[Rfam]
The record is a 138-nucleotide RNA from Carlito syrichta, which matches "U8 small nucleolar RNA" in Rfam. Rfam 15.1 lists 1,597 matches to the family in 457 species. By type it is a C/D-box small nucleolar RNA. The organism belongs to Carlito, within Eukaryota.

RNA sequence: UUAUCAUGUAGGAUACUCCUUAUCUGCCCCCGCCCCCCAGAAGGCAAAUUAGAAUAUGGUGAUUGGAAUUCACAUGAUACCUGAUUAAUGUCUCUGCAAAAAUCAGGUCUCAUAACACCCUGAUUGCUCCUAUCUGAU
Numbered sequence: 001u002u003a004u005c006a007u008g009u010a011g012g013a014u015a016c017u018c019c020u021u022a023u024c025u026g027c028c029c030c031c032g033c034c035c036c037c038c039a040g041a042a043g044g045c046a047a048a049u050u051a052g053a054a055u056a057u058g059g060u061g062a063u064u065g066g067a068a069u070u071c072a073c074a075u076g077a078u079a080c081c082u083g084a085u086u087a088a089u090g091u092c093u094c095u096g097c098a099a100a101a102a103u104c105a106g107g108u109c110u111c112a113u114a115a116c117a118c119c120c121u122g123a124u125u126g127c128u129c130c131u132a133u134c135u136g137a138u
Base pairs, nucleotide, nucleotide: 025046026045028044029043031040076094077093079091080090082087100125102124103123104122105121106120107119